The family of this 167-nucleotide RNA sequence from Oryza glumipatula is "MIR807 microRNA precursor family".
A reference for the family is Luo et al. (2006), "Rice embryogenic calli express a unique set of microRNAs, suggesting regulatory roles of microRNAs in plant post-embryogenic development", FEBS Lett.
It scores 144 bits against the family's covariance model.
[Rfam]
RNA sequence: AACCACACUGAUUCACCCGCGAGAUGACGUGGCUAUUUCACAUAGGACGAGGGUGUGGCAUUCUAUUACUAGCCAUCGCACGAAAUUAAUAGGAUAUGCCACAUCAUCAUCCUAGAUGGAAUAACCACGUCAUCACACGGGUGAAUCCAUUCAUCGAUAGUGUGGUU
Numbered sequence: 001a002a003c004c005a006c007a008c009u010g011a012u013u014c015a016c017c018c019g020c021g022a023g024a025u026g027a028c029g030u031g032g033c034u035a036u037u038u039c040a041c042a043u044a045g046g047a048c049g050a051g052g053g054u055g056u057g058g059c060a061u062u063c064u065a066u067u068a069c070u071a072g073c074c075a076u077c078g079c080a081c082g083a084a085a086u087u088a089a090u091a092g093g094a095u096a097u098g099c100c101a102c103a104u105c106a107u108c109a110u111c112c113u114a115g116a117u118g119g120a121a122u123a124a125c126c127a128c129g130u131c132a133u134c135a136c137a138c139g140g141g142u143g144a145a146u147c148c149a150u151u152c153a154u155c156g157a158u159a160g161u162g163u164g165g166u167u
Base pairs, nucleotide, nucleotide: 002154005151007150010147011146012145013144014143015142016141017140019138021136024133025132026131027130028129030127031126032125034123035122036121037120040117043114044113046111047110052105053104054103058099059098060097061094062093063092064091065090066089067088068087075086076085